The family of this 219-nucleotide RNA sequence from Bauldia litoralis is "permuted transfer-messenger RNA". It is annotated as a non-coding RNA gene.
[Rfam]
RNA sequence: GGCGAUAAACUGCCAUCGUAAUAAACCCUGCGGACCCGGGGGCAGUACCCGGCGCCUCCACCAGAACCCGUUCAAGGACCGCGAGCGGUUUCCGGCGGGGGCGAAAUAGGAUCGACGAGGGCGUAAAGGGUGAGCUUUUGCCCGGCAUGGUACCCGCCGUUAUCGGGCCAAAUUGUAGUUGCAAACGACAACUAUGCAGAGGCACGCCUCGCUGCGUAA
Number, nucleotide and partner (000 for none) at each position: 001g142002g141003c140004g139005a138006u000007a000008a000009a000010c000011u000012g000013c000014c132015a131016u130017c129018g000019u000020a000021a000022u000023a000024a000025a000026c121027c120028c119029u000030g000031c117032g116033g000034a000035c000036c052037c051038g050039g049040g048041g000042g000043c000044a000045g000046u000047a000048c040049c039050c038051g037052g036053c103054g102055c101056c100057u099058c098059c097060a000061c000062c000063a000064g000065a000066a000067c000068c000069c000070g000071u000072u000073c000074a000075a000076g000077g000078a000079c000080c000081g000082c000083g000084a000085g000086c000087g000088g000089u000090u000091u000092c000093c000094g000095g000096c000097g059098g058099g057100g056101g055102c054103g053104a000105a000106a000107u000108a000109g000110g000111a000112u000113c000114g000115a000116c032117g031118a000119g028120g027121g026122c000123g000124u000125a000126a000127a000128g000129g017130g016131u015132g014133a000134g000135c000136u000137u000138u005139u004140g003141c002142c001143c159144g158145g157146c156147a000148u000149g000150g000151u000152a000153c000154c000155c000156g146157c145158c144159g143160u000161u000162a000163u000164c000165g000166g000167g000168c000169c000170a000171a000172a000173u000174u000175g000176u000177a000178g000179u000180u000181g000182c000183a000184a000185a000186c000187g000188a000189c000190a000191a000192c000193u000194a000195u000196g000197c000198a000199g000200a000201g000202g000203c000204a000205c000206g000207c000208c000209u000210c000211g000212c000213u000214g000215c000216g000217u000218a000219a000